[Rfam]
RNA sequence: UAAAAUGAUGAAGAUUUUAAUUUUCCGUUGGUCUAUUAAGAACAGAAGUACUUCAAAACUACUUUUUAAGACCAUCCUUUAACAAUGUUUCUUUUAAUAUUGUUAAACUUCUCAUUUACUUUGCGUCUUUAUGGUCUCAUCGUUCUGAUGGAUCGUAAUUUAGACACGAGGUAUACUUCAUUAAUUUGUUGGAGAAUAUUGGGAGUCUUUUAAUGUGAUGAGUGGCCAACACAACCUAUAGUCAUAGUUACACUGAUU
Numbered sequence: 001u002a003a004a005a006u007g008a009u010g011a012a013g014a015u016u017u018u019a020a021u022u023u024u025c026c027g028u029u030g031g032u033c034u035a036u037u038a039a040g041a042a043c044a045g046a047a048g049u050a051c052u053u054c055a056a057a058a059c060u061a062c063u064u065u066u067u068a069a070g071a072c073c074a075u076c077c078u079u080u081a082a083c084a085a086u087g088u089u090u091c092u093u094u095u096a097a098u099a100u101u102g103u104u105a106a107a108c109u110u111c112u113c114a115u116u117u118a119c120u121u122u123g124c125g126u127c128u129u130u131a132u133g134g135u136c137u138c139a140u141c142g143u144u145c146u147g148a149u150g151g152a153u154c155g156u157a158a159u160u161u162a163g164a165c166a167c168g169a170g171g172u173a174u175a176c177u178u179c180a181u182u183a184a185u186u187u188g189u190u191g192g193a194g195a196a197u198a199u200u201g202g203g204a205g206u207c208u209u210u211u212a213a214u215g216u217g218a219u220g221a222g223u224g225g226c227c228a229a230c231a232c233a234a235c236c237u238a239u240a241g242u243c244a245u246a247g248u249u250a251c252a253c254u255g256a257u258u
Stems, first nucleotide, its partner, number of pairs: 005245005010025006027230007035223003042216003045065006068209005078107012110204004117173007125165004129158008138150004176194005

Overview: The record is a 258-nucleotide RNA from Saccharomyces uvarum, which matches "Small nucleolar RNA snR63" in Rfam. Rfam links the family to the GO terms nucleolus and RNA processing. The sequence is in the family's curated seed alignment. Taxonomically the source falls in Saccharomyces uvarum (Eukaryota, saccharomyceta, Saccharomycetes, Saccharomycetaceae).